[Rfam]
RNA sequence: UCGGGAAGUUUCUAGGGUUCCGGUGCAGGCAAUCGAAGCAUUGCGGCACGGCUGGUCCGAGAGAAACGCCCCGCCGGAGAGACAUCCGACGGGUCCACGGCGGGACAAAAGCCCGGGAGGC
Numbered sequence: 001u002c003g004g005g006a007a008g009u010u011u012c013u014a015g016g017g018u019u020c021c022g023g024u025g026c027a028g029g030c031a032a033u034c035g036a037a038g039c040a041u042u043g044c045g046g047c048a049c050g051g052c053u054g055g056u057c058c059g060a061g062a063g064a065a066a067c068g069c070c071c072c073g074c075c076g077g078a079g080a081g082a083c084a085u086c087c088g089a090c091g092g093g094u095c096c097a098c099g100g101c102g103g104g105a106c107a108a109a110a111g112c113c114c115g116g117g118a119g120g121c
Stems, first nucleotide, its partner, number of pairs: 008067005015058002020055002022052001023049004028044001070093004075088004096116001098119001102114003

Shown here is a 121-nucleotide sequence from Hartmannibacter diazotrophicus, a member of the family "Guanidine-I riboswitch aptamer".
Taxonomically the source falls in Hartmannibacter (Bacteria, Pseudomonadati, Alphaproteobacteria, Hyphomicrobiales).
The match comes from Rfam's covariance-model search (77 bits).